Shown here is a 134-nucleotide RNA sequence from Pararge aegeria, a member of the family "U4atac minor spliceosomal RNA". Rfam links the family to the GO terms U4atac snRNP, mRNA 5'-splice site recognition and pre-mRNA 5'-splice site binding. Its Rfam clan is "U4 clan". NCBI's taxonomy places the organism under Eukaryota, Pancrustacea, Allotriocarida, Obtectomera, Pararge aegeria. Rfam describes the family as follows. U4atac is an essential component of the minor U12-type spliceosome complex which is required for removal of the rarer class of eukaryotic introns (AT-AC, U12-type). Pairs were carried over by alignment from the consensus structure, which is taken from published work.
RNA sequence: CACUUCCUUGUCUUGGGGAGCAUAGUGCGCAGUGAUCGUAAAGUGAGAGCACUGAUGCUGACACCCAGUUAUACUUGUAUAACAUACCCGCGCCCGGCUGCCGUAAAGGGAGUCUGAGCGCAAUUUUUGAAAGG
Numbered sequence: 001c002a003c004u005u006c007c008u009u010g011u012c013u014u015g016g017g018g019a020g021c022a023u024a025g026u027g028c029g030c031a032g033u034g035a036u037c038g039u040a041a042a043g044u045g046a047g048a049g050c051a052c053u054g055a056u057g058c059u060g061a062c063a064c065c066c067a068g069u070u071a072u073a074c075u076u077g078u079a080u081a082a083c084a085u086a087c088c089c090g091c092g093c094c095c096g097g098c099u100g101c102c103g104u105a106a107a108g109g110g111a112g113u114c115u116g117a118g119c120g121c122a123a124u125u126u127u128u129g130a131a132a133g134g
Base pairs, nucleotide, nucleotide: 005019006018007017008016009015020058021057022056023055024053025052026051027050028049030047037043090121091120092119093118095116098112099111101109102108